[Rfam]
RNA sequence: AUAUAAAAAUAGCUGAAUCCCCGUUGAAGGGGUACGGAGGAACCAAGAAAUUGGGGUGAAUCUAUGAAAAUAGUAGGGCUGUCCUAUUGCCCGAGCCCGGCAGCUAACUUCGGAAGCGUCUAUAUAGGAGGAACU
Numbered sequence: 001a002u003a004u005a006a007a008a009a010u011a012g013c014u015g016a017a018u019c020c021c022c023g024u025u026g027a028a029g030g031g032g033u034a035c036g037g038a039g040g041a042a043c044c045a046a047g048a049a050a051u052u053g054g055g056g057u058g059a060a061u062c063u064a065u066g067a068a069a070a071u072a073g074u075a076g077g078g079c080u081g082u083c084c085u086a087u088u089g090c091c092c093g094a095g096c097c098c099g100g101c102a103g104c105u106a107a108c109u110u111c112g113g114a115a116g117c118g119u120c121u122a123u124a125u126a127g128g129a130g131g132a133a134c135u
Base pairs, nucleotide, nucleotide: 012117013116014115019032020031021030022029035112036111037110038109039108044053045052054098055097056096062073063072064071065070076092077091078090079089
c-di-AMP riboswitch aptamer (ydaO/yuaA leader): a 135-nucleotide RNA sequence from Ruminiclostridium sufflavum.